[Rfam]
RNA sequence: UUGAAGAAUUUGAAGACCUCAAUUUGCAGACUUGUAGAAUUUGAAGACCUCAACUUGCAAACUUGAAGAAUUUGAAGGCCUAAAGU
Numbered sequence: 001u002u003g004a005a006g007a008a009u010u011u012g013a014a015g016a017c018c019u020c021a022a023u024u025u026g027c028a029g030a031c032u033u034g035u036a037g038a039a040u041u042u043g044a045a046g047a048c049c050u051c052a053a054c055u056u057g058c059a060a061a062c063u064u065g066a067a068g069a070a071u072u073u074g075a076a077g078g079c080c081u082a083a084a085g086u
Base pairs, nucleotide, nucleotide: 001084002083004081006079009076010075011074012073013072014071017068019066020065021064025059026058027057028056032053033052034051037048